[Rfam]
RNA: FGF-1 internal ribosome entry site (IRES)
Organism: Canis lupus
RNA sequence: AAGUCCAGGGGAGUAAGGAAGGGCAUUGCCUCCUUUCGGUGGACACUCCCUUCUGAUGGGGAAUGGGAACUGCCUUCCCCCUGCGGCUCGCCUGCAGUGGUCCUGCUAGGGCCGCGUGGGUACCCGUGGGCACCGGUGAGCACCCGGGGGCACCCGAGGCU
Numbered sequence: 001a002a003g004u005c006c007a008g009g010g011g012a013g014u015a016a017g018g019a020a021g022g023g024c025a026u027u028g029c030c031u032c033c034u035u036u037c038g039g040u041g042g043a044c045a046c047u048c049c050c051u052u053c054u055g056a057u058g059g060g061g062a063a064u065g066g067g068a069a070c071u072g073c074c075u076u077c078c079c080c081c082u083g084c085g086g087c088u089c090g091c092c093u094g095c096a097g098u099g100g101u102c103c104u105g106c107u108a109g110g111g112c113c114g115c116g117u118g119g120g121u122a123c124c125c126g127u128g129g130g131c132a133c134c135g136g137u138g139a140g141c142a143c144c145c146g147g148g149g150g151c152a153c154c155c156g157a158g159g160c161u
Stems, first nucleotide, its partner, number of pairs: 002161004009155003020051004029042002032039002052148003059080001061077003065074002082140001084135003092129004097124001099123001103118001